[Rfam]
RNA: Bacterial RNase P class A
RNA sequence: GAUGGUUUUCAGGAAGUCUUAUUGCAGAGGAAAGUCCGGGCUCCUUCGGGCAAAGUGCCAGGUAAUUCCUGGGAGGUGUAAGCCUACGGAAAGUGCCACAGAAAAUAUACCGCCUAAUAUACUUACAGCAAUGGGAUUUUUGGCAAGUGCCGCGGAAUUGUGAAUUGAGCGGGAAAGCUGCCAAAAAUUCAAGUGCGAAGCGUAUGGGGUAAGGGUGAAAAGGUGUGGUAAAAGCGCACCGCAUCAUUGGUAACAGUGAUGGCAGGGCAAACCCCACUUGGAGCAAGACCAAAUAGGAACCUAUACUAUACGCCUUGGAUUUCAAGGAGCUGGUGAGGCGCUGCUGAAGUCGAGCAGCGGAGCAUACUAAACCGUAUGUGAGCAGUGAGACGAACCAGCAACAAAGCCAGAACUUGAAAGGAGAGGUGUAUAUAGCGUGGCCCACGUUGGGUUCGGGUAGGUCGCUUGAGAUAUAGGGUGACGUAUAUCCUAGAUGAAUGACUGUCCACGACAGAACCCGGCUUAUCGGCUGACUUUCAUU
Numbered sequence: 001g002a003u004g005g006u007u008u009u010c011a012g013g014a015a016g017u018c019u020u021a022u023u024g025c026a027g028a029g030g031a032a033a034g035u036c037c038g039g040g041c042u043c044c045u046u047c048g049g050g051c052a053a054a055g056u057g058c059c060a061g062g063u064a065a066u067u068c069c070u071g072g073g074a075g076g077u078g079u080a081a082g083c084c085u086a087c088g089g090a091a092a093g094u095g096c097c098a099c100a101g102a103a104a105a106u107a108u109a110c111c112g113c114c115u116a117a118u119a120u121a122c123u124u125a126c127a128g129c130a131a132u133g134g135g136a137u138u139u140u141u142g143g144c145a146a147g148u149g150c151c152g153c154g155g156a157a158u159u160g161u162g163a164a165u166u167g168a169g170c171g172g173g174a175a176a177g178c179u180g181c182c183a184a185a186a187a188u189u190c191a192a193g194u195g196c197g198a199a200g201c202g203u204a205u206g207g208g209g210u211a212a213g214g215g216u217g218a219a220a221a222g223g224u225g226u227g228g229u230a231a232a233a234g235c236g237c238a239c240c241g242c243a244u245c246a247u248u249g250g251u252a253a254c255a256g257u258g259a260u261g262g263c264a265g266g267g268c269a270a271a272c273c274c275c276a277c278u279u280g281g282a283g284c285a286a287g288a289c290c291a292a293a294u295a296g297g298a299a300c301c302u303a304u305a306c307u308a309u310a311c312g313c314c315u316u317g318g319a320u321u322u323c324a325a326g327g328a329g330c331u332g333g334u335g336a337g338g339c340g341c342u343g344c345u346g347a348a349g350u351c352g353a354g355c356a357g358c359g360g361a362g363c364a365u366a367c368u369a370a371a372c373c374g375u376a377u378g379u380g381a382g383c384a385g386u387g388a389g390a391c392g393a394a395c396c397a398g399c400a401a402c403a404a405a406g407c408c409a410g411a412a413c414u415u416g417a418a419a420g421g422a423g424a425g426g427u428g429u430a431u432a433u434a435g436c437g438u439g440g441c442c443c444a445c446g447u448u449g450g451g452u453u454c455g456g457g458u459a460g461g462u463c464g465c466u467u468g469a470g471a472u473a474u475a476g477g478g479u480g481a482c483g484u485a486u487a488u489c490c491u492a493g494a495u496g497a498a499u500g501a502c503u504g505u506c507c508a509c510g511a512c513a514g515a516a517c518c519c520g521g522c523u524u525a526u527c528g529g530c531u532g533a534c535u536u537u538c539a540u541u
Base pairs, nucleotide, nucleotide: 001023002022003021004020005019032524033523034522036521037520038519039518040517041283042282043281044280048443049442050441051440053279054278055277056276057275058072059071060070061069062068073087074085075084076083077082088274089273093272094271095268096267097266110214111213112210113209114208115207117205118204119203120202222240223239224238225237226236227235241263242261243260244259245258246257247256248255249254287463288462289461290460297454298453299452300451301450302449434448435447436446437445438444470489471488472487473486474485475484477482
Dot-bracket structure: (((((.............)))))........(((.(((((((((...[[[[.((((((((((.....)))))(((((....)))).)((...(((((............((((((.((((.................................................................................)))).))))..)).......((((((.......))))))(((((((((....)))))))).)..)))..)))))))))))))...((((......((((((...................................................................................................................................(((((.]]]]))))))))))).....))))......((((((.(....).))))))...........................)))))))).................